The family of this 422-nucleotide RNA sequence from Polypterus senegalus is "Vertebrate telomerase RNA". The organism belongs to Polypterus, within Eukaryota. For this family Rfam cites "Secondary structure of vertebrate telomerase RNA" (Chen et al., Cell, 2000). It scores 131 bits against the family's covariance model. About the family: Telomerase is a ribonucleoprotein reverse transcriptase that synthesises telomeric DNA. Telomerase RNAs differ greatly in sequence and structure between vertebrates, ciliates and yeasts, but they share a 5' pseudoknot structure close to the template sequence. Vertebrate telomerase RNAs have a 3' H/ACA snoRNA-like domain. Clan: Telomerase clan.
[Rfam]
RNA sequence: CACAGUGGAAUUGAGGAGAUUGGUGUGUUUUUAACCCUAAUUUGUCAGUUGUAUUGAUUUCCCCACCACGGUUUUUGCUGUUUCUCUCUCGGGGCUAGCUUUCAGUAAAUAAGGGGAGACGGGCGUAUGACCACUACCGUAAAAAAGGCUAGCAGACCAGCUUUCUCUUUUCCGCUGCCUGCCGAUUCACUUCUUCCCGUUUGUUAUGUUGAAAACGGGUAAGCUCGGGGUGCUUGUCUUUCAGGGCCGCGGUCAGCAGCAGCUUUUGUAGUUGCAGUGCUGCCGUGAAGAUUUCGCGUCUGUGCCUGGACAAGUACCCGCGAGGUGAGUUUUGCAGGGAGAGCAAAAUUGAGCACGGCCUACUGUUAUGGUUCUGCAUCCCUACCUCAUGGGAAGCGCAGCACCGGGCGGCUCGGACAAUU
Numbered sequence: 001c002a003c004a005g006u007g008g009a010a011u012u013g014a015g016g017a018g019a020u021u022g023g024u025g026u027g028u029u030u031u032u033a034a035c036c037c038u039a040a041u042u043u044g045u046c047a048g049u050u051g052u053a054u055u056g057a058u059u060u061c062c063c064c065a066c067c068a069c070g071g072u073u074u075u076u077g078c079u080g081u082u083u084c085u086c087u088c089u090c091g092g093g094g095c096u097a098g099c100u101u102u103c104a105g106u107a108a109a110u111a112a113g114g115g116g117a118g119a120c121g122g123g124c125g126u127a128u129g130a131c132c133a134c135u136a137c138c139g140u141a142a143a144a145a146a147g148g149c150u151a152g153c154a155g156a157c158c159a160g161c162u163u164u165c166u167c168u169u170u171u172c173c174g175c176u177g178c179c180u181g182c183c184g185a186u187u188c189a190c191u192u193c194u195u196c197c198c199g200u201u202u203g204u205u206a207u208g209u210u211g212a213a214a215a216c217g218g219g220u221a222a223g224c225u226c227g228g229g230g231u232g233c234u235u236g237u238c239u240u241u242c243a244g245g246g247c248c249g250c251g252g253u254c255a256g257c258a259g260c261a262g263c264u265u266u267u268g269u270a271g272u273u274g275c276a277g278u279g280c281u282g283c284c285g286u287g288a289a290g291a292u293u294u295c296g297c298g299u300c301u302g303u304g305c306c307u308g309g310a311c312a313a314g315u316a317c318c319c320g321c322g323a324g325g326u327g328a329g330u331u332u333u334g335c336a337g338g339g340a341g342a343g344c345a346a347a348a349u350u351g352a353g354c355a356c357g358g359c360c361u362a363c364u365g366u367u368a369u370g371g372u373u374c375u376g377c378a379u380c381c382c383u384a385c386c387u388c389a390u391g392g393g394a395a396g397c398g399c400a401g402c403a404c405c406g407g408g409c410g411g412c413u414c415g416g417a418c419a420a421u422u
Stems, first nucleotide, its partner, number of pairs: 005175006013167006020160005058119005072111001074109007094153006100146003178338005184332001224324004229319002233314005248287005254282004259275003289301004351414004356410002359407002372403001374401003379394004